[Rfam]
RNA sequence: AAGAGCCUCGAGUCAAUAAAGACUAAGGAGAUCAACUUAGGAACAAA
Numbered sequence: 001a002a003g004a005g006c007c008u009c010g011a012g013u014c015a016a017u018a019a020a021g022a023c024u025a026a027g028g029a030g031a032u033c034a035a036c037u038u039a040g041g042a043a044c045a046a047a
Stems, first nucleotide, its partner, number of pairs: 007041002010038004016032002
Plastid-rpl16 group II-D1 intron: a 47-nucleotide RNA sequence from Tetracentron sinense. Pairs were carried over by alignment from the consensus structure, which was predicted with LocARNA. NCBI's taxonomy places the organism under Eukaryota, Tracheophyta, Magnoliopsida, Trochodendrales, Tetracentron. The literature on the family includes a 2023 paper in Plant Commun by Richter et al., "Retrograde signaling in plants: A critical review focusing on the GUN pathway and beyond". Its family is annotated with Group II intron splicing in the Gene Ontology.